Annotation: Rfam assigns this 91-nucleotide sequence from Fonsecaea erecta to the family "A. fumigatus snoRNA Afu_263".
RNA sequence: UGUUGUGAUGAAAACCCAUAUCCAAAAGCAUAGUUCAACUGAGACGUCACGUCUUUGAACGAGAACAAUUCCAUCUUUCAAUCUUCUGAAC
Numbered sequence: 001u002g003u004u005g006u007g008a009u010g011a012a013a014a015c016c017c018a019u020a021u022c023c024a025a026a027a028g029c030a031u032a033g034u035u036c037a038a039c040u041g042a043g044a045c046g047u048c049a050c051g052u053c054u055u056u057g058a059a060c061g062a063g064a065a066c067a068a069u070u071c072c073a074u075c076u077u078u079c080a081a082u083c084u085u086c087u088g089a090a091c
Base pairs, nucleotide, nucleotide: 006020007019010016033060034059035058036057037056043053044052045051046050
A reference for the family is Jochl et al. (2008), "Small ncRNA transcriptome analysis from Aspergillus fumigatus suggests a novel mechanism for regulation of protein synthesis", Nucleic Acids Res. Clan: SNORD77 clan.